This 74-nucleotide RNA sequence from Aeromicrobium sp. A1-2 belongs to the Rfam family "Actino-pnp RNA". The base pairs follow the family's consensus structure, which is taken from published work.
[Rfam]
RNA sequence: CUCGGUCCUCGGUAGUGGCCCUCGGGAGAAUCCAGGCAAGACGGACUCCCCGCAGGCCUCGAUCGAAGACCGGC
Numbered sequence: 001c002u003c004g005g006u007c008c009u010c011g012g013u014a015g016u017g018g019c020c021c022u023c024g025g026g027a028g029a030a031u032c033c034a035g036g037c038a039a040g041a042c043g044g045a046c047u048c049c050c051c052g053c054a055g056g057c058c059u060c061g062a063u064c065g066a067a068g069a070c071c072g073g074c
Stems, first nucleotide, its partner, number of pairs: 002073006009066005017058004023052004028047001
About this RNA:
The family's RNA type in Rfam is cis-regulatory element.